The record is a 192-nucleotide RNA from Halalkalibacterium halodurans, which matches "Lysine riboswitch aptamer" in Rfam.

[Rfam]
RNA sequence: AGUGAUGGUAGAGGUGCGAAAACCAAGAGUACACAGUCUGAGAGAAAUGAGAAUCGUUGACGACUGUUGGAAAGGGGGAUUCGCCGAAGUGCAGAUCGGGGCUCAUUCCCAUUUGCGCUGGACCUAUGUUGAAUAAGCAUAGGGCUGUCACAACACUAGCCCCAACUAGUGCUGUGGAGAACUAUCUCACGU
Numbered sequence: 001a002g003u004g005a006u007g008g009u010a011g012a013g014g015u016g017c018g019a020a021a022a023c024c025a026a027g028a029g030u031a032c033a034c035a036g037u038c039u040g041a042g043a044g045a046a047a048u049g050a051g052a053a054u055c056g057u058u059g060a061c062g063a064c065u066g067u068u069g070g071a072a073a074g075g076g077g078g079a080u081u082c083g084c085c086g087a088a089g090u091g092c093a094g095a096u097c098g099g100g101g102c103u104c105a106u107u108c109c110c111a112u113u114u115g116c117g118c119u120g121g122a123c124c125u126a127u128g129u130u131g132a133a134u135a136a137g138c139a140u141a142g143g144g145c146u147g148u149c150a151c152a153a154c155a156c157u158a159g160c161c162c163c164a165a166c167u168a169g170u171g172c173u174g175u176g177g178a179g180a181a182c183u184a185u186c187u188c189a190c191g192u
Base pairs, nucleotide, nucleotide: 007186008185009184010183011182016084017083018082019081020080023077024076032069033068034066035065036064037063038062088119089118090117091116092115093114094113095112096111098109099108120146121145123143124142125141126140127139128138129137130136148177149176150175151174152173154171155170156169157168158167